The record is a 587-nucleotide part of an RNA from Halobacteriovorax marinus, which matches "Bacterial large subunit ribosomal RNA" in Rfam. Lineage of the source: Bacteria > Pseudomonadati > Bacteriovoracales > Halobacteriovorax > Halobacteriovorax marinus. Gene Ontology terms of the family: structural constituent of ribosome and ribosome. Clan: LSU clan.

RNA sequence: CCCGCGGAAGGACGAAAAGACCCCGUGAACCUUUACUGUAGCUUGACAUUGGGUUUUGAUUAACAUUGCGUAGGAUAGGUGGGAGUUUUUGAUCCCUGCAUUCCGGUGUAGGAGUAGACAUCCUUGAAAUACCACCCUUUGUUAAUUGAAAUCCUAACCUACGAUCCUGAUCGGGUCGGGGGACAAUGUCUGGUGGGCAGUUUGACUGGGGCGGUCGCCUCCUAAAGAGUAACGGAGGCGCACAAAGGUUCGCUCAAGCCGAAUGGAAACCGGCUGUAGAGUGUAAACGCAUAAGCGAGCUUGACUGCAACACAAACACGUGGAGCAGGGUCGAAAGACGGUGUUAGUGAUCCGGUGGUUCCGAGUGGAAGGGCCAUCGCUCAACGGAUAAAAGGUACUCCGGGGAUAACAGGCUGAUCUCCCCCAAGAGUUCACAUCGACGGGGAGGUUUGGCACCUCGAUGUCGGCUCAUCGCAUCCUGGGGCUGGAGCAGGUCCCAAGGGUUAGACUGUUCGUCUAUUAAAGCGGUACGCGAGCUGGGUUCAGAACGUCGUGAGACAGUUCGGUCUCUAUCCUCCGUGGGCGUA
Numbered sequence: 001c002c003c004g005c006g007g008a009a010g011g012a013c014g015a016a017a018a019g020a021c022c023c024c025g026u027g028a029a030c031c032u033u034u035a036c037u038g039u040a041g042c043u044u045g046a047c048a049u050u051g052g053g054u055u056u057u058g059a060u061u062a063a064c065a066u067u068g069c070g071u072a073g074g075a076u077a078g079g080u081g082g083g084a085g086u087u088u089u090u091g092a093u094c095c096c097u098g099c100a101u102u103c104c105g106g107u108g109u110a111g112g113a114g115u116a117g118a119c120a121u122c123c124u125u126g127a128a129a130u131a132c133c134a135c136c137c138u139u140u141g142u143u144a145a146u147u148g149a150a151a152u153c154c155u156a157a158c159c160u161a162c163g164a165u166c167c168u169g170a171u172c173g174g175g176u177c178g179g180g181g182g183a184c185a186a187u188g189u190c191u192g193g194u195g196g197g198c199a200g201u202u203u204g205a206c207u208g209g210g211g212c213g214g215u216c217g218c219c220u221c222c223u224a225a226a227g228a229g230u231a232a233c234g235g236a237g238g239c240g241c242a243c244a245a246a247g248g249u250u251c252g253c254u255c256a257a258g259c260c261g262a263a264u265g266g267a268a269a270c271c272g273g274c275u276g277u278a279g280a281g282u283g284u285a286a287a288c289g290c291a292u293a294a295g296c297g298a299g300c301u302u303g304a305c306u307g308c309a310a311c312a313c314a315a316a317c318a319c320g321u322g323g324a325g326c327a328g329g330g331u332c333g334a335a336a337g338a339c340g341g342u343g344u345u346a347g348u349g350a351u352c353c354g355g356u357g358g359u360u361c362c363g364a365g366u367g368g369a370a371g372g373g374c375c376a377u378c379g380c381u382c383a384a385c386g387g388a389u390a391a392a393a394g395g396u397a398c399u400c401c402g403g404g405g406a407u408a409a410c411a412g413g414c415u416g417a418u419c420u421c422c423c424c425c426a427a428g429a430g431u432u433c434a435c436a437u438c439g440a441c442g443g444g445g446a447g448g449u450u451u452g453g454c455a456c457c458u459c460g461a462u463g464u465c466g467g468c469u470c471a472u473c474g475c476a477u478c479c480u481g482g483g484g485c486u487g488g489a490g491c492a493g494g495u496c497c498c499a500a501g502g503g504u505u506a507g508a509c510u511g512u513u514c515g516u517c518u519a520u521u522a523a524a525g526c527g528g529u530a531c532g533c534g535a536g537c538u539g540g541g542u543u544c545a546g547a548a549c550g551u552c553g554u555g556a557g558a559c560a561g562u563u564c565g566g567u568c569u570c571u572a573u574c575c576u577c578c579g580u581g582g583g584c585g586u587a
Stems, first nucleotide, its partner, number of pairs: 001583008010575003014570002022404004027400002029396005035201004042193002045190004051154015068137001078136005085119003095112007158181003162178006204216004217239006240385001242342002248300006254280002257275005281290002305328004311322003330339003353379007361372002413454003417451001418448007428438002465540001466538004470532001471529005478503002481498006505519005546564004550559003